About this RNA:
The record is a 105-nucleotide RNA from Virgibacillus necropolis, which matches "SAM riboswitch aptamer (S box leader)" in Rfam. It scores 48 bits against the family's covariance model.

[Rfam]
RNA sequence: AACUUAUCAAGAGAGGUUAAGGUACUGACCCACCAUUACACCUCAGCAACCAGUCAUUCAUGGCGCGGUGCUAAUCUCAUUAAGUAGCUAUCUAGGUGAUAAGAA
Numbered sequence: 001a002a003c004u005u006a007u008c009a010a011g012a013g014a015g016g017u018u019a020a021g022g023u024a025c026u027g028a029c030c031c032a033c034c035a036u037u038a039c040a041c042c043u044c045a046g047c048a049a050c051c052a053g054u055c056a057u058u059c060a061u062g063g064c065g066c067g068g069u070g071c072u073a074a075u076c077u078c079a080u081u082a083a084g085u086a087g088c089u090a091u092c093u094a095g096g097u098g099a100u101a102a103g104a105a
Base pairs, nucleotide, nucleotide: 003103004102005101006100007099008098013044014043015042016041017040021031022030026079027078028077045072046071047070048069050068051067053064054063055062056061081094082093084091085090